The family of this 91-nucleotide RNA sequence from Tenebrionibacter intestinalis is "Plasmid-encoded Shigella sRNA A". It scores 72 bits against the family's covariance model.

RNA sequence: UGGUUGAGAAAAGAAUUUUAAUUAUUUAAGAGAUCCUGAAAUUUGGCGAUCUCAUGCAACAGGCACAAAACGGAGAGAAACUAUGUUUGAA
Numbered sequence: 001u002g003g004u005u006g007a008g009a010a011a012a013g014a015a016u017u018u019u020a021a022u023u024a025u026u027u028a029a030g031a032g033a034u035c036c037u038g039a040a041a042u043u044u045g046g047c048g049a050u051c052u053c054a055u056g057c058a059a060c061a062g063g064c065a066c067a068a069a070a071c072g073g074a075g076a077g078a079a080a081c082u083a084u085g086u087u088u089g090a091a
Stems, first nucleotide, its partner, number of pairs: 001065002004062003008057001013053002017049002019045003023041001071089004076084001